[Rfam]
RNA: Mammalian CPEB3 ribozyme
RNA sequence: AUCACAAGUUUGAGGACUUAGCAAAACCACUUACGGUGUGGCCCUGCCAGAUUCCAAUGAAUCUGCAAAUUCUGCU
Numbered sequence: 001a002u003c004a005c006a007a008g009u010u011u012g013a014g015g016a017c018u019u020a021g022c023a024a025a026a027c028c029a030c031u032u033a034c035g036g037u038g039u040g041g042c043c044c045u046g047c048c049a050g051a052u053u054c055c056a057a058u059g060a061a062u063c064u065g066c067a068a069a070u071u072c073u074g075c076u
Stems, first nucleotide, its partner, number of pairs: 012044001014043002017040001020076004025071002028038002048065007